[Rfam]
RNA sequence: CUUUUAACGAAUUUUAAUUAACUCGAGACGAUUAAACGGAAGUAAAAGAUGAGAAGAAGAAGGGUGAGAAGAACUGAGGAAACUCGGCCACCUGCAGGGAGAAGGGUCAAUCGCCUGCAUCAGUAGAACCCACUGAACCCCUUCAACUUCG
Numbered sequence: 001c002u003u004u005u006a007a008c009g010a011a012u013u014u015u016a017a018u019u020a021a022c023u024c025g026a027g028a029c030g031a032u033u034a035a036a037c038g039g040a041a042g043u044a045a046a047a048g049a050u051g052a053g054a055a056g057a058a059g060a061a062g063g064g065u066g067a068g069a070a071g072a073a074c075u076g077a078g079g080a081a082a083c084u085c086g087g088c089c090a091c092c093u094g095c096a097g098g099g100a101g102a103a104g105g106g107u108c109a110a111u112c113g114c115c116u117g118c119a120u121c122a123g124u125a126g127a128a129c130c131c132a133c134u135g136a137a138c139c140c141c142u143u144c145a146a147c148u149u150c151g
Stems, first nucleotide, its partner, number of pairs: 001048006014035006053150004059144006074087005093119006099112002120136005

The family of this 151-nucleotide RNA sequence is "IMES-5 RNA". Rfam's curators put it in the seed alignment.